[Rfam]
The record is an 86-nucleotide RNA from Nicotiana attenuata, which matches "MIR6152 microRNA precursor family" in Rfam. Its family is annotated with RISC complex and miRNA-mediated post-transcriptional gene silencing in the Gene Ontology.

Nucleotides: 086
Base pairs, nucleotide, nucleotide: 002085003084004083009080010079011078012077013067014066016065017064018063019062020061021060024055025054026053027049028048029047030046031045032044
Number, partner (000 for none) and nucleotide at each position: 001000u002085g003084g004083a005000c006000a007000g008000c009080u010079u011078a012077u013067u014066g015000u016065a017064u018063u019062c020061a021060c022000g023000g024055c025054g026053u027049g028048a029047a030046a031045c032044a033000a034000g035000g036000g037000a038000u039000u040000a041000c042000a043000c044032u045031g046030u047029u048028u049027u050000u051000a052000a053026a054025c055024g056000g057000a058000a059000a060021g061020u062019g063018a064017a065016u066014c067013a068000a069000u070000u071000a072000a073000c074000a075000u076000a077012a078011u079010a080009g081000a082000c083004u084003c085002c086000u
The base pairs follow the family's consensus structure, which was predicted with RNAalifold.